[Rfam]
The family of this 71-nucleotide RNA from Parahoeflea phototrophica is "ybhL leader". The pairing is the family consensus, mapped onto this sequence. The literature on the family includes a 2005 paper in Genome Biol by Corbino et al., "Evidence for a second class of S-adenosylmethionine riboswitches and other regulatory RNA motifs in alpha-proteobacteria". The family's RNA type in Rfam is cis-regulatory leader.

RNA sequence: CAGGCAUGCUGGAGCCCCGCAGCGGCGCCUGGGAACUUGAACCCGACACCGUAACCCAUACCGGGGCUUAU
Numbered sequence: 001c002a003g004g005c006a007u008g009c010u011g012g013a014g015c016c017c018c019g020c021a022g023c024g025g026c027g028c029c030u031g032g033g034a035a036c037u038u039g040a041a042c043c044c045g046a047c048a049c050c051g052u053a054a055c056c057c058a059u060a061c062c063g064g065g066g067c068u069u070a071u
Stems, first nucleotide, its partner, number of pairs: 012069008023051003030045004